The record is a 79-nucleotide RNA sequence from Altererythrobacter ishigakiensis, which matches "Makes More Granules Regulator RNA (mmgR)" in Rfam.
The family's RNA type in Rfam is small RNA.

RNA sequence: AAAGCGGGCCUUUAUAGGCAUCCUCUCCCAAAAACUUUUCCAGCCCGGCCAUUUUGGUCGGGCUUUUUUCUUGCCUCCU
Numbered sequence: 001a002a003a004g005c006g007g008g009c010c011u012u013u014a015u016a017g018g019c020a021u022c023c024u025c026u027c028c029c030a031a032a033a034a035c036u037u038u039u040c041c042a043g044c045c046c047g048g049c050c051a052u053u054u055u056g057g058u059c060g061g062g063c064u065u066u067u068u069u070c071u072u073g074c075c076u077c078c079u
Base pairs, nucleotide, nucleotide: 008019009018010017011016042064043063044062045061046060047059048058049057050056
Lineage of the source: Bacteria > Alphaproteobacteria > Sphingomonadales > Erythrobacteraceae > Altererythrobacter. Rfam describes the family as follows. SuhB later renamed mmgR (makes more granules regulator) was a putative non-coding RNA found multiple times in the Agrobacterium tumefaciens genome and related alpha-proteobacteria. Other non-coding RNAs uncovered in the same analysis include: speF, ybhL, metA, and serC.Several studies inSinorhizobium meliloti showed that suhB element is indeed a non-coding RNA:firstly it was detected on Northern blot and called Sm8RNA, secondly in an RNAseq study referred to as SmelC689.The mutant phenotype's (strain lacking the small RNA) cytoplasm contains higher content of polyhydroxybutyrate (PBH)storage granules than wild type strain. The sRNA is required to limit the PBH intracellular accumulation when the nitrogen-fixing Sinorhizobium meliloti is under condition of surplus carbon in relation to nitrogen. On this family, see Corbino et al., Genome Biol 2005: "Evidence for a second class of S-adenosylmethionine riboswitches and other regulatory RNA motifs in alpha-proteobacteria". Gene Ontology terms of the family: protein binding, response to nitrogen compound and DNA-templated transcription, termination.